[Rfam]
RNA sequence: UCAUCUAGUAGGUAAUUCUGAUCUGUAAGUCCACUGGACUUCAGAAAAGAAUUGUGAUGAUCGCGGAACAUGACUUUAUGUGAGUUAAAUUCCGCAAGGGGAGAGAGCUAACGACACUCUUCUCUUAACUCUGAU
Numbered sequence: 001u002c003a004u005c006u007a008g009u010a011g012g013u014a015a016u017u018c019u020g021a022u023c024u025g026u027a028a029g030u031c032c033a034c035u036g037g038a039c040u041u042c043a044g045a046a047a048a049g050a051a052u053u054g055u056g057a058u059g060a061u062c063g064c065g066g067a068a069c070a071u072g073a074c075u076u077u078a079u080g081u082g083a084g085u086u087a088a089a090u091u092c093c094g095c096a097a098g099g100g101g102a103g104a105g106a107g108c109u110a111a112c113g114a115c116a117c118u119c120u121u122c123u124c125u126u127a128a129c130u131c132u133g134a135u
Stems, first nucleotide, its partner, number of pairs: 023044003027041006072092002075089003096126003101123001103121004
RNA: U8 small nucleolar RNA
Organism: Biomphalaria glabrata